Rfam assigns this 60-nucleotide sequence from Ictalurus punctatus to the family "mir-460 microRNA precursor family". On this family, see Chen et al., Genes Dev 2005: "The developmental miRNA profiles of zebrafish as determined by small RNA cloning". Pairs were carried over by alignment from the consensus structure, which was predicted with RNAalifold.

[Rfam]
RNA sequence: CCUGCAUUGUACACACUGUGCGGAAAACAUGGACAUGCACAGCGCAUACAAUGUGGAUGC
Numbered sequence: 001c002c003u004g005c006a007u008u009g010u011a012c013a014c015a016c017u018g019u020g021c022g023g024a025a026a027a028c029a030u031g032g033a034c035a036u037g038c039a040c041a042g043c044g045c046a047u048a049c050a051a052u053g054u055g056g057a058u059g060c
Base pairs, nucleotide, nucleotide: 002056003055005053006052007051008050009049010048011047014044016042017041018040019039020038021037